[Rfam]
RNA sequence: AAACAGCCCCCUAUGUAUUGGAUAUUUGGUAGUUUUGGCCUCCAAGGCCACUUUUGACUUAGUCUUCGCUGACGUGGCACUCACAUCACUUAAGUGAAGUGCCACGUGUUGACCAUUGUGGGUGCCAUGUCAACGAAGACUAAGUCAAAAGUAGCCUUGGGGCCAAAACUGCCAAAGAUCCAAUACAUGGAGGGUUGUUU
Numbered sequence: 001a002a003a004c005a006g007c008c009c010c011c012u013a014u015g016u017a018u019u020g021g022a023u024a025u026u027u028g029g030u031a032g033u034u035u036u037g038g039c040c041u042c043c044a045a046g047g048c049c050a051c052u053u054u055u056g057a058c059u060u061a062g063u064c065u066u067c068g069c070u071g072a073c074g075u076g077g078c079a080c081u082c083a084c085a086u087c088a089c090u091u092a093a094g095u096g097a098a099g100u101g102c103c104a105c106g107u108g109u110u111g112a113c114c115a116u117u118g119u120g121g122g123u124g125c126c127a128u129g130u131c132a133a134c135g136a137a138g139a140c141u142a143a144g145u146c147a148a149a150a151g152u153a154g155c156c157u158u159g160g161g162g163c164c165a166a167a168a169c170u171g172c173c174a175a176a177g178a179u180c181c182a183a184u185a186c187a188u189g190g191a192g193g194g195u196u197g198u199u200u
Base pairs, nucleotide, nucleotide: 001200002199004197005196006195007194008193012189013188014187015186016185017184018183019182020181021180022179023178025176026175027174028173029172030171031170032169033168034167035166036165037164038163039162040161042160043159044158045157072130073129075127076126077125078124079123080122081121082120083119084118085117

The family of this 200-nucleotide RNA sequence from Medicago truncatula is "MIR2619 microRNA precursor family".
Its family is annotated with miRNA-mediated post-transcriptional gene silencing and RISC complex in the Gene Ontology.
The source organism's lineage runs through Eukaryota, Streptophyta, Gunneridae, fabids and Medicago.
A search with the family's covariance model found it, with a score of 151 bits.